[Rfam]
Nucleotides: 100
Base pairs, nucleotide, nucleotide: 038093039092040091041090042089052081053080054079055078056077057076058075059074
Number, partner (000 for none) and nucleotide at each position: 001000u002000u003000g004000c005000u006000c007000a008000a009000g010000g011000g012000a013000u014000g015000g016000a017000a018000c019000a020000a021000a022000g023000u024000c025000c026000u027000c028000a029000a030000a031000u032000u033000a034000a035000a036000a037000a038093u039092c040091a041090u042089c043000c044000g045000u046000c047000a048000c049000u050000u051000u052081g053080u054079c055078a056077g057076c058075a059074g060000a061000u062000u063000u064000u065000u066000c067000u068000c069000u070000u071000u072000u073000c074059u075058u076057g077056c078055u079054g080053a081052u082000c083000a084000u085000a086000c087000a088000a089042g090041a091040u092039g093038a094000c095000a096000c097000a098000a099000u100000u